Description: ZMP/ZTP riboswitch aptamer (pfl RNA motif): a 79-nucleotide RNA sequence from Anaerosolibacter carboniphilus. The organism belongs to Anaerosolibacter, within Bacteria.

[Rfam]
Nucleotides: 079
Stems, first nucleotide, its partner, number of pairs: 006049007015040002017067005024037004056074001058072003
Number, partner (000 for none) and nucleotide at each position: 001000a002000u003000g004000a005000a006049g007048u008047c009046a010045c011044a012043c013000g014000a015040c016039u017067g018066g019065c020064g021063g022000a023000a024037g025036u026035g027034g028000a029000a030000u031000a032000a033000a034027c035026c036025a037024c038000g039016g040015g041000g042000a043012g044011u045010g046009u047008g048007a049006c050000g051000g052000a053000g054000a055000a056074a057000a058072g059071c060070c061000g062000a063021c064020c065019g066018c067017c068000u069000g070060g071059g072058c073000a074056u075000a076000g077000a078000a079000c